[Rfam]
RNase MRP: a 723-nucleotide RNA sequence from Galdieria sulphuraria. It is annotated as a ribozyme. The organism belongs to Galdieria, within Eukaryota. It scores 90 bits against the family's covariance model. About the family: RNase MRP is an enzymatically active ribonucleoprotein with two distinct roles in eukaryotes. The family is grouped with related families in Rfam's "RNaseP clan".
RNA sequence: GAGCACAGAGAAGCAUUCCGUUCGGAGCGCUGGACUUGUUGUUUCAAAGCAUCAAGUUCCAGGCUAUAACUAUAAACGUUAUAGAAGCUCUGGGGAAAGUCUCCGGACAAAGAGGUAGAAAGUACCAGCCGUAAUGGCCUGCGUCUUAGGUUGGAACCAUUUCUGAAGGAACUCCAAGAACUUGGUAGGGUUUGUGCAACUGACCAAAGCCAAGGCCACUUUUUGUUACGUUCGAUUAGUAUGAAGCGUUCUCUCUUUUCAGAAGACGAGUCACUCUUCAGUGUUCUUGGAUGGAUUGGGAAAGCUCGUACUGAAAGAACAUUGACGAGAAGUGGUCCUACUUUGGGUCGGACCCUUCUUUUGAAGAGUUCGUUGCUUUGCAUCUCUACCAGUUUUCUUAUUAACUCAAGUUCUUUCACUUGAAAAUGGUUUCUUCCACCUAGGGCGCUUUCGUCCAGUUAAAAAAGUUAUGGAAUGGGUUUCAGGUAAGUACUUGUGAGCAGCCCAAUAUCUUGCAAAACUUGAUAUGAUGACACCAACGUUGCCGCCCCAGACCUAUGCCUGAACGGCACUGAGGAAAGGCUGGAUUGGAAUUACCGUCUGACAGUUUUUAACAAAGAGUACAAUCUUCUUUUUUGCUUGAACUAAAAGUUUAUAGGUUGUGAGGCAAAUUCCGUGACACAACCUCGUUACUAACAAAAUGGGGCUUACUCUCUCUGUGCU
Numbered sequence: 001g002a003g004c005a006c007a008g009a010g011a012a013g014c015a016u017u018c019c020g021u022u023c024g025g026a027g028c029g030c031u032g033g034a035c036u037u038g039u040u041g042u043u044u045c046a047a048a049g050c051a052u053c054a055a056g057u058u059c060c061a062g063g064c065u066a067u068a069a070c071u072a073u074a075a076a077c078g079u080u081a082u083a084g085a086a087g088c089u090c091u092g093g094g095g096a097a098a099g100u101c102u103c104c105g106g107a108c109a110a111a112g113a114g115g116u117a118g119a120a121a122g123u124a125c126c127a128g129c130c131g132u133a134a135u136g137g138c139c140u141g142c143g144u145c146u147u148a149g150g151u152u153g154g155a156a157c158c159a160u161u162u163c164u165g166a167a168g169g170a171a172c173u174c175c176a177a178g179a180a181c182u183u184g185g186u187a188g189g190g191u192u193u194g195u196g197c198a199a200c201u202g203a204c205c206a207a208a209g210c211c212a213a214g215g216c217c218a219c220u221u222u223u224u225g226u227u228a229c230g231u232u233c234g235a236u237u238a239g240u241a242u243g244a245a246g247c248g249u250u251c252u253c254u255c256u257u258u259u260c261a262g263a264a265g266a267c268g269a270g271u272c273a274c275u276c277u278u279c280a281g282u283g284u285u286c287u288u289g290g291a292u293g294g295a296u297u298g299g300g301a302a303a304g305c306u307c308g309u310a311c312u313g314a315a316a317g318a319a320c321a322u323u324g325a326c327g328a329g330a331a332g333u334g335g336u337c338c339u340a341c342u343u344u345g346g347g348u349c350g351g352a353c354c355c356u357u358c359u360u361u362u363g364a365a366g367a368g369u370u371c372g373u374u375g376c377u378u379u380g381c382a383u384c385u386c387u388a389c390c391a392g393u394u395u396u397c398u399u400a401u402u403a404a405c406u407c408a409a410g411u412u413c414u415u416u417c418a419c420u421u422g423a424a425a426a427u428g429g430u431u432u433c434u435u436c437c438a439c440c441u442a443g444g445g446c447g448c449u450u451u452c453g454u455c456c457a458g459u460u461a462a463a464a465a466a467g468u469u470a471u472g473g474a475a476u477g478g479g480u481u482u483c484a485g486g487u488a489a490g491u492a493c494u495u496g497u498g499a500g501c502a503g504c505c506c507a508a509u510a511u512c513u514u515g516c517a518a519a520a521c522u523u524g525a526u527a528u529g530a531u532g533a534c535a536c537c538a539a540c541g542u543u544g545c546c547g548c549c550c551c552a553g554a555c556c557u558a559u560g561c562c563u564g565a566a567c568g569g570c571a572c573u574g575a576g577g578a579a580a581g582g583c584u585g586g587a588u589u590g591g592a593a594u595u596a597c598c599g600u601c602u603g604a605c606a607g608u609u610u611u612u613a614a615c616a617a618a619g620a621g622u623a624c625a626a627u628c629u630u631c632u633u634u635u636u637u638g639c640u641u642g643a644a645c646u647a648a649a650a651g652u653u654u655a656u657a658g659g660u661u662g663u664g665a666g667g668c669a670a671a672u673u674c675c676g677u678g679a680c681a682c683a684a685c686c687u688c689g690u691u692a693c694u695a696a697c698a699a700a701a702u703g704g705g706g707c708u709u710a711c712u713c714u715c716u717c718u719g720u721g722c723u
Stems, first nucleotide, its partner, number of pairs: 002723010014477006022093007097709003101706004114126004332448003341444003345440002350437003360426003409420003479693002483689001